[Rfam]
RNA sequence: CUCUUAUCGAGAGUGGCGGAGGGAAUGGCCCGAUGAAGCCCGGCAACCAUGUACGAACGUGUACGAAAGGUGCCAAUUCCAGCAGAGCUAGGACGCUCUGGAAGAUAAGAG
Numbered sequence: 001c002u003c004u005u006a007u008c009g010a011g012a013g014u015g016g017c018g019g020a021g022g023g024a025a026u027g028g029c030c031c032g033a034u035g036a037a038g039c040c041c042g043g044c045a046a047c048c049a050u051g052u053a054c055g056a057a058c059g060u061g062u063a064c065g066a067a068a069g070g071u072g073c074c075a076a077u078u079c080c081a082g083c084a085g086a087g088c089u090a091g092g093a094c095g096c097u098c099u100g101g102a103a104g105a106u107a108a109g110a111g
Stems, first nucleotide, its partner, number of pairs: 001111008013041001015040003021031003026081003042074004047070002050065003078103001083100006

Source information
The family of this 111-nucleotide sequence from Alteribacter keqinensis is "SAM riboswitch aptamer (S box leader)". Gene Ontology term of the family: regulation of gene expression. The SAM riboswitch is found upstream of a number of genes which code for proteins involved in methionine or cysteine biosynthesis in Gram-positive bacteria. NCBI's taxonomy places the organism under Bacteria, Bacillota, Caryophanales, Bacillaceae, Alteribacter.